[Rfam]
RNA sequence: AUAGAAAUCUUGCCGAAUCUGACCAUGAGUCAGUACGGGGGACCUGUAAUUUGGGGUGAAUCACCAAGAGUGUAGGGUACCCUCUUACCCGAACCCGUCAACUAACCUCGGAGGCAUCAGGAGGAAUCGAU
Numbered sequence: 001a002u003a004g005a006a007a008u009c010u011u012g013c014c015g016a017a018u019c020u021g022a023c024c025a026u027g028a029g030u031c032a033g034u035a036c037g038g039g040g041g042a043c044c045u046g047u048a049a050u051u052u053g054g055g056g057u058g059a060a061u062c063a064c065c066a067a068g069a070g071u072g073u074a075g076g077g078u079a080c081c082c083u084c085u086u087a088c089c090c091g092a093a094c095c096c097g098u099c100a101a102c103u104a105a106c107c108u109c110g111g112a113g114g115c116a117u118c119a120g121g122a123g124g125a126a127u128c129g130a131u
Stems, first nucleotide, its partner, number of pairs: 011116004019033004036110005045053002054096003062072003075090004
The family of this 131-nucleotide sequence from Effusibacillus lacus is "c-di-AMP riboswitch aptamer (ydaO/yuaA leader)". Taxonomically the source falls in Effusibacillus (Bacteria, Bacillati, Bacillota, Alicyclobacillaceae). Gene Ontology terms of the family: cyclic-di-AMP binding and regulation of gene expression. The match comes from Rfam's covariance-model search (86 bits).